[Rfam]
This 125-nucleotide RNA sequence from Myotis lucifugus belongs to the Rfam family "U4atac minor spliceosomal RNA".
Rfam classes the family as a spliceosomal small nuclear RNA.
A search with the family's covariance model found it, with a score of 66 bits.
The base pairs follow the family's consensus structure, which is taken from published work.
NCBI's taxonomy places the organism under Eukaryota, Vertebrata, Sarcopterygii, Vespertilionidae, Myotis.
From the family's description: U4atac is an essential component of the minor U12-type spliceosome complex which is required for removal of the rarer class of eukaryotic introns (AT-AC, U12-type).
The family is grouped with related families in Rfam's "U4 clan".

RNA sequence: CCCAUCCUUUUCCUGGCAUUGUGGUACUGUCCAAUGAAUGUCUAGUGAGGACAGUACUGCUAACCCUAAACAACACAUCCACAUUAGAUAGGGCUCUUCUUUACCUUAGUGCAAUUUGAGGGGUG
Dot-bracket structure: .......((.....))....((((.(((((((.....((.....))..))))))).)))).....................(((((..(((((.....)))))...)))))..............